RNA sequence: GGUACCUUUAAAUCAGUCCAGAGAGGCUGACAAGGACAGCGGACAUUUGCGGAUGGACAGGCUUACGAAUGUGAUGAAAUUACACACAUUUGUAGGUAUGAUUCUGCAAAUUUGAAGGCUAAUUGUCAGAUCUACUGAUAAUUAGCCUUUUUU
Numbered sequence: 001g002g003u004a005c006c007u008u009u010a011a012a013u014c015a016g017u018c019c020a021g022a023g024a025g026g027c028u029g030a031c032a033a034g035g036a037c038a039g040c041g042g043a044c045a046u047u048u049g050c051g052g053a054u055g056g057a058c059a060g061g062c063u064u065a066c067g068a069a070u071g072u073g074a075u076g077a078a079a080u081u082a083c084a085c086a087c088a089u090u091u092g093u094a095g096g097u098a099u100g101a102u103u104c105u106g107c108a109a110a111u112u113u114g115a116a117g118g119c120u121a122a123u124u125g126u127c128a129g130a131u132c133u134a135c136u137g138a139u140a141a142u143u144a145g146c147c148u149u150u151u152u153u
Stems, first nucleotide, its partner, number of pairs: 005035004013030006061097013116148014
RNA: PyrR binding site
Organism: Alkalihalobacillus trypoxylicola